[Rfam]
RNA: Small nucleolar RNA SNORA57
Organism: Salmo trutta
RNA sequence: CCUCCAUUCUUGGCAUGCACGCUUUCUCCCUGUACCCGUGUAUGUUUGUUAUGGAGAGAACCAGGCCAGUGCUAUGUCUUCGGUGCCAGGAUGUUCCUUGUCUUCUGGUUCUAUCCUCAAUUCGCUGGUGCACCC
Numbered sequence: 001c002c003u004c005c006a007u008u009c010u011u012g013g014c015a016u017g018c019a020c021g022c023u024u025u026c027u028c029c030c031u032g033u034a035c036c037c038g039u040g041u042a043u044g045u046u047u048g049u050u051a052u053g054g055a056g057a058g059a060a061c062c063a064g065g066c067c068a069g070u071g072c073u074a075u076g077u078c079u080u081c082g083g084u085g086c087c088a089g090g091a092u093g094u095u096c097c098u099u100g101u102c103u104u105c106u107g108g109u110u111c112u113a114u115c116c117u118c119a120a121u122u123c124g125c126u127g128g129u130g131c132a133c134c135c
Base pairs, nucleotide, nucleotide: 002056003055004054005053014044015043016042017041018040019039021037025034067127068126069125070124071123086108087107088106089105090104091103093102